The family of this 81-nucleotide RNA from Taxus chinensis is "Small nucleolar RNA snoR14".
[Rfam]
RNA sequence: UCAAUGAGAUGAUUAGUAAAAAUCUGUCAAUCCACUGAAAAUUUAUUAAAGUUAUUUUAUGUCCCAAUAGGUUCUAAUUGA
Number, nucleotide and partner (000 for none) at each position: 001u081002c080003a079004a078005u000006g000007a000008g000009a000010u000011g000012a000013u000014u000015a000016g000017u000018a000019a000020a000021a000022a000023u000024c000025u000026g000027u000028c000029a000030a000031u000032c000033c000034a000035c000036u000037g000038a000039a000040a000041a000042u000043u000044u000045a000046u000047u000048a000049a000050a000051g000052u000053u000054a000055u000056u000057u000058u000059a000060u000061g000062u000063c000064c000065c000066a000067a000068u000069a000070g000071g000072u000073u000074c000075u000076a000077a000078u004079u003080g002081a001
Overview
For this family Rfam cites "Multiple snoRNA gene clusters from Arabidopsis" (Brown et al., RNA, 2001). The match comes from Rfam's covariance-model search (50 bits). Rfam 15.1 lists 668 matches to the family in 221 species. Rfam links the family to the GO terms RNA processing and nucleolus. NCBI's taxonomy places the organism under Eukaryota, Streptophyta, Spermatophyta, Pinopsida, Taxus.